[Rfam]
RNA sequence: UCCGGGGGAAGCUCACCGCCGAGGCCACCAGCGGGGUGCGCGUCACCCAAGCCCCGCCUCGGGGAAGGUCUGAGGGAAGGGCCGCUCGCGGCUCCAGCAGAGCCCCGCCCGCGAGGGGCGGGUGAGCCACCAGCAAGGGGGGGCGCCGCGCUGCGGGCCGGCCUGGGCAGGAGAAGCCGAGCAGGUUCCGCCGAGGGUCGGUCACCCGCCCUCAGGGAACCCCGGCGGAUGCUCGUGGCCCCGCGGUGCUUUGAGACAGACUCACGGCCGGCGACCGCUGAGCCCAAUGGGUGAGGUGGGGUACAGCCCUAUAACCCAAUUCAGACUACUCUUCCCCGGA
Numbered sequence: 001u002c003c004g005g006g007g008g009a010a011g012c013u014c015a016c017c018g019c020c021g022a023g024g025c026c027a028c029c030a031g032c033g034g035g036g037u038g039c040g041c042g043u044c045a046c047c048c049a050a051g052c053c054c055c056g057c058c059u060c061g062g063g064g065a066a067g068g069u070c071u072g073a074g075g076g077a078a079g080g081g082c083c084g085c086u087c088g089c090g091g092c093u094c095c096a097g098c099a100g101a102g103c104c105c106c107g108c109c110c111g112c113g114a115g116g117g118g119c120g121g122g123u124g125a126g127c128c129a130c131c132a133g134c135a136a137g138g139g140g141g142g143g144c145g146c147c148g149c150g151c152u153g154c155g156g157g158c159c160g161g162c163c164u165g166g167g168c169a170g171g172a173g174a175a176g177c178c179g180a181g182c183a184g185g186u187u188c189c190g191c192c193g194a195g196g197g198u199c200g201g202u203c204a205c206c207c208g209c210c211c212u213c214a215g216g217g218a219a220c221c222c223c224g225g226c227g228g229a230u231g232c233u234c235g236u237g238g239c240c241c242c243g244c245g246g247u248g249c250u251u252u253g254a255g256a257c258a259g260a261c262u263c264a265c266g267g268c269c270g271g272c273g274a275c276c277g278c279u280g281a282g283c284c285c286a287a288u289g290g291g292u293g294a295g296g297u298g299g300g301g302u303a304c305a306g307c308c309c310u311a312u313a314a315c316c317c318a319a320u321u322c323a324g325a326c327u328a329c330u331c332u333u334c335c336c337c338g339g340a
Stems, first nucleotide, its partner, number of pairs: 001340004007334003012295006020061005034048005070324005080269004090104005105121006122265005128259001142250009296312006
A member of the RNA family "Nuclear RNase P" from Caloenas nicobarica, 340 nucleotides long. Ribonuclease P (RNase P) is a ubiquitous endoribonuclease, found in archaea, bacteria and eukarya as well as chloroplasts and mitochondria. Its best characterised activity is the generation of mature 5'-ends of tRNAs by cleaving the 5'-leader elements of precursor-tRNAs. Cellular RNase Ps are ribonucleoproteins. RNA from bacterial RNase Ps retains its catalytic activity in the absence of the protein subunit, i.e. it is a ribozyme. Isolated eukaryotic and archaeal RNase P RNA has not been shown to retain its catalytic function, but is still essential for the catalytic activity of the holoenzyme. Although the archaeal and eukaryotic holoenzyme s have a much greater protein content than the bacterial ones, the RNA cores from all the three lineages are homologous -- helices corresponding to P1, P2, P3, P4, and P10/11 are common to all cellular RNase P RNAs. Yet, there is considerable sequence variation, particularly among the eukaryotic RNAs. Its family is annotated with ribonuclease P activity, tRNA processing and ribonuclease P complex in the Gene Ontology. Taxonomically the source falls in Caloenas (Eukaryota, Teleostomi, Saurischia, Aves). The family is grouped with related families in Rfam's "RNaseP clan".